[Rfam]
The family of this 167-nucleotide part of an RNA from Cylindrodendrum hubeiense is "Ascomycota telomerase RNA". The family's RNA type in Rfam is non-coding RNA gene. Rfam links the family to the GO terms telomerase activity, telomerase catalytic core complex and telomere maintenance via telomerase.

RNA sequence: CCUACUGUCAGGUACCGAUCGGUUCUGACAGGUCCCUCGGUUUCAUCUUGAAAAGGAUGGCUUGAGACGACAGGGCGGUUUUUACGGAUGUAUUUUGUCCGCCCGUUAAUGCCCUCCUUGGCAGCUCUUUGAGCACGAUGGAGAGGAAACAAAAACCAAUCCUAGUU
Number, nucleotide and partner (000 for none) at each position: 001c000002c000003u000004a000005c000006u030007g029008u028009c027010a026011g025012g024013u000014a023015c022016c021017g000018a000019u000020c000021g016022g015023u014024u012025c011026u010027g009028a008029c007030a006031g000032g000033u000034c000035c069036c066037u065038c064039g063040g062041u060042u000043u000044c059045a058046u057047c056048u000049u054050g000051a000052a000053a000054a049055g000056g047057a046058u045059g044060g041061c000062u040063u039064g038065a037066g036067a000068c000069g035070a000071c000072a000073g000074g000075g000076c000077g000078g000079u000080u000081u000082u000083u000084a000085c000086g000087g161088a160089u159090g156091u155092a000093u154094u153095u152096u151097g150098u149099c000100c000101g000102c000103c000104c000105g000106u000107u000108a000109a000110u000111g000112c146113c145114c143115u142116c141117c140118u000119u000120g000121g000122c000123a139124g000125c137126u000127c000128u000129u000130u000131g000132a000133g000134c000135a000136c000137g125138a000139u123140g117141g116142a115143g114144a000145g113146g112147a000148a000149a098150c097151a096152a095153a094154a093155a091156c090157c000158a000159a089160u088161c087162c000163u000164a000165g000166u000167u000
Lineage of the source: Eukaryota > Opisthokonta > Fungi > sordariomyceta > Cylindrodendrum. A reference for the family is Qi et al. (2013), "The common ancestral core of vertebrate and fungal telomerase RNAs", Nucleic Acids Res. A search with the family's covariance model found it, with a score of 364 bits.